[Rfam]
RNA sequence: UACCGACCCCGAGAGGUGUCGGGAUGCGCCUGCAGAAGUCAGCAGAAGGCAUAGUAGGUUGGGGACGAAGCGGAGAGCCCGAGAAGAACUCUGACCGAAGGCC
Numbered sequence: 001u002a003c004c005g006a007c008c009c010c011g012a013g014a015g016g017u018g019u020c021g022g023g024a025u026g027c028g029c030c031u032g033c034a035g036a037a038g039u040c041a042g043c044a045g046a047a048g049g050c051a052u053a054g055u056a057g058g059u060u061g062g063g064g065a066c067g068a069a070g071c072g073g074a075g076a077g078c079c080c081g082a083g084a085a086g087a088a089c090u091c092u093g094a095c096c097g098a099a100g101g102c103c
Stems, first nucleotide, its partner, number of pairs: 001026002003022005009016002039046002048103003057096003062091003
Shown here is a 103-nucleotide RNA sequence, a member of the family "Group II catalytic intron D1-D4-1". Rfam's curators write: Group II introns are found in rRNA, tRNA and mRNA of organelles in fungi, plants and protists, and also in mRNA in bacteria.